[Rfam]
A member of the RNA family "mir-22 microRNA precursor family" from Lepisosteus oculatus, 84 nucleotides long. Pairs were carried over by alignment from the consensus structure, which was predicted with RNAalifold. For this family Rfam cites "Identification of novel genes coding for small expressed RNAs" (Lagos-Quintana et al., Science, 2001). Lineage of the source: Eukaryota > Bilateria > Gnathostomata > Euteleostomi > Lepisosteus. Rfam links the family to the GO terms RISC complex and miRNA-mediated post-transcriptional gene silencing. A search with the family's covariance model found it, with a score of 85 bits.

RNA sequence: AGUUACUCCACAGUCGUUCUUCACUGGCUAGCUUUAUUUUUCUGUCCAUGUAAAGCUGCCAGUUGAAGAGCUGUUGUGGGUGAC
Numbered sequence: 001a002g003u004u005a006c007u008c009c010a011c012a013g014u015c016g017u018u019c020u021u022c023a024c025u026g027g028c029u030a031g032c033u034u035u036a037u038u039u040u041u042c043u044g045u046c047c048a049u050g051u052a053a054a055g056c057u058g059c060c061a062g063u064u065g066a067a068g069a070g071c072u073g074u075u076g077u078g079g080g081u082g083a084c
Stems, first nucleotide, its partner, number of pairs: 005081003010077003017070006026060003030057007